The record is a 115-nucleotide sequence from Caballeronia glathei, which matches "Burkholderia sRNA Bp1_Cand684_SIPHT" in Rfam.
The family's consensus secondary structure was predicted with RNAalifold.
Taxonomically the source falls in Caballeronia (Bacteria, Pseudomonadati, Pseudomonadota, Burkholderiales).
[Rfam]
RNA sequence: AAGAAAGUAACUGCCGCCCCGCACAGGGGCGAAGCUAAUAGACCGAUAACAACGCAAGUUUCACAGAAGCCGAAGCGCAUCAAACGGUUCAACAAACCCCAACCCCGAGCGCCAG
Number, nucleotide and partner (000 for none) at each position: 001a000002a000003g000004a000005a000006a000007g000008u000009a000010a000011c000012u079013g078014c077015c031016g030017c029018c028019c027020c026021g000022c000023a000024c000025a000026g020027g019028g018029g017030c016031g015032a000033a000034g000035c000036u000037a000038a000039u000040a000041g000042a000043c000044c000045g000046a000047u000048a000049a000050c000051a000052a000053c000054g000055c000056a000057a000058g071059u000060u069061u000062c000063a000064c000065a000066g000067a000068a000069g060070c000071c058072g000073a000074a000075g000076c000077g014078c013079a012080u000081c000082a000083a000084a000085c000086g000087g000088u000089u000090c000091a000092a000093c000094a000095a000096a000097c000098c000099c000100c107101a000102a000103c000104c000105c000106c000107g100108a000109g000110c000111g000112c000113c000114a000115g000